[Rfam]
RNA sequence: GGGAGGGUAACCUGGCUGUGAGAUCUGACGUUCCACUGAUGGCAUGGGUUGAUCUGGCUGAUCUGCCUAGCCUAGGCAGGUGUUCCCUUUCUUCCUUGACAUUCCAUGUGUGCUCCUCUUUGUGAUGUGUGCUUGGUAAAUCAGUAGAGCCUCCCCAAGAGACAUGGUAUUGUUCAUUGGUCAAAGGGGUGUGGUAGCUGUGGUCCCCUGCUGGAAGCCCUCAGUAAGCUCAAGGUCCAUUUGUAGAUAAAUGUAGGGUAAUUAAGCAUCCGAUACUGAAGACACAUUCAAAUGAGAAGCUGCACGCACCAGUCUGCCAGUGGCUUU
Numbered sequence: 001g002g003g004a005g006g007g008u009a010a011c012c013u014g015g016c017u018g019u020g021a022g023a024u025c026u027g028a029c030g031u032u033c034c035a036c037u038g039a040u041g042g043c044a045u046g047g048g049u050u051g052a053u054c055u056g057g058c059u060g061a062u063c064u065g066c067c068u069a070g071c072c073u074a075g076g077c078a079g080g081u082g083u084u085c086c087c088u089u090u091c092u093u094c095c096u097u098g099a100c101a102u103u104c105c106a107u108g109u110g111u112g113c114u115c116c117u118c119u120u121u122g123u124g125a126u127g128u129g130u131g132c133u134u135g136g137u138a139a140a141u142c143a144g145u146a147g148a149g150c151c152u153c154c155c156c157a158a159g160a161g162a163c164a165u166g167g168u169a170u171u172g173u174u175c176a177u178u179g180g181u182c183a184a185a186g187g188g189g190u191g192u193g194g195u196a197g198c199u200g201u202g203g204u205c206c207c208c209u210g211c212u213g214g215a216a217g218c219c220c221u222c223a224g225u226a227a228g229c230u231c232a233a234g235g236u237c238c239a240u241u242u243g244u245a246g247a248u249a250a251a252u253g254u255a256g257g258g259u260a261a262u263u264a265a266g267c268a269u270c271c272g273a274u275a276c277u278g279a280a281g282a283c284a285c286a287u288u289c290a291a292a293u294g295a296g297a298a299g300c301u302g303c304a305c306g307c308a309c310c311a312g313u314c315u316g317c318c319a320g321u322g323g324c325u326u327u
Base pairs, nucleotide, nucleotide: 001104002103004096005095006094007093009090010089014087015086020084021083023081024080025079026078027077029075031070032069034065035064038063039062040061042058043057113167114166117162118161119136120135122133124132137158144154146152197267198266199265204260206258207257208256209255210254211253221246224244225243226242227241228240290327291326292325296318299313300312301311302310
The family of this 327-nucleotide RNA sequence from Serinus canaria is "7SK RNA". For this family Rfam cites "Transcription: surprising role for an elusive small nuclear RNA" (Blencowe, Curr Biol, 2002). 7SK was discovered as an abundant small nuclear RNA in the mid-70s but a possible function has only recently been suggested. Two independent studies have found that 7SK RNA binds the CDK9/cyclin T complex (known as elongation factor P-TEFb). P-TEFb activates transcription by phosphorylating the C-terminal domain of RNA polymerase II. This process is negatively regulated by the 7SK RNP. The secondary structure of 7SK RNA shown here was proposed by Wasserman and Steitz on the basis of chemical modification and enzymatic cleavage experiments. This family contains a number of annotated pseudogenes and 7SK derived repeats. The threshold is artificially high to minimise the pseudogene count. The family's RNA type in Rfam is non-coding RNA gene.